[Rfam]
RNA sequence: GGUCGGCUGAGGGUAAGGCCCAUCAAGUACGAGAGGAACGAUGGACCGGGGCCUCUGGUCUACCGGUUGUCCGACAGGGCACUGCCGGGCAGCUACGCCCCACGCCGAUAAGGGCUGAAGGCAUCUAAGCCCGAAGCGGCCCCCAAGACGAGCCGACCAUUCUCCUUGCAAAUCUCGGGCAACUGAGGUUUGUAAGGGGACGAGGGCGCCCGUAAAAGACGGGUUUGAUAGGCCUGGGAUGUAAGCGGGAAGCUUCGGCGACCCGUUAAGUCUGCAGGUACUAAGAGCCCAAGGG
Numbered sequence: 001g002g003u004c005g006g007c008u009g010a011g012g013g014u015a016a017g018g019c020c021c022a023u024c025a026a027g028u029a030c031g032a033g034a035g036g037a038a039c040g041a042u043g044g045a046c047c048g049g050g051g052c053c054u055c056u057g058g059u060c061u062a063c064c065g066g067u068u069g070u071c072c073g074a075c076a077g078g079g080c081a082c083u084g085c086c087g088g089g090c091a092g093c094u095a096c097g098c099c100c101c102a103c104g105c106c107g108a109u110a111a112g113g114g115c116u117g118a119a120g121g122c123a124u125c126u127a128a129g130c131c132c133g134a135a136g137c138g139g140c141c142c143c144c145a146a147g148a149c150g151a152g153c154c155g156a157c158c159a160u161u162c163u164c165c166u167u168g169c170a171a172a173u174c175u176c177g178g179g180c181a182a183c184u185g186a187g188g189u190u191u192g193u194a195a196g197g198g199g200a201c202g203a204g205g206g207c208g209c210c211c212g213u214a215a216a217a218g219a220c221g222g223g224u225u226u227g228a229u230a231g232g233c234c235u236g237g238g239a240u241g242u243a244a245g246c247g248g249g250a251a252g253c254u255u256c257g258g259c260g261a262c263c264c265g266u267u268a269a270g271u272c273u274g275c276a277g278g279u280a281c282u283a284a285g286a287g288c289c290c291a292a293g294g295g
Stems, first nucleotide, its partner, number of pairs: 001158008011144003017047002020044005048101005056095003063088005068081005105139003112132005204290004208224005229283003232279005237273003245266005252259001
RNA: Archaeal large subunit ribosomal RNA, nucleotides 2723 to 3017
Organism: uncultured euryarchaeote Alv-FOS5